[Rfam]
RNA: Selenocysteine insertion sequence 1
Organism: Labrus bergylta
RNA sequence: CUUUUUACAUGAAGAUUGCAGUGCAAACCUUCGGGCAACUGUGAUCUGAUGAAAUUCGAAAAG
Numbered sequence: 001c002u003u004u005u006u007a008c009a010u011g012a013a014g015a016u017u018g019c020a021g022u023g024c025a026a027a028c029c030u031u032c033g034g035g036c037a038a039c040u041g042u043g044a045u046c047u048g049a050u051g052a053a054a055u056u057c058g059a060a061a062a063g
Base pairs, nucleotide, nucleotide: 001063002062003061004060005059014046015045016044017043018042019041020040021039022038028035029034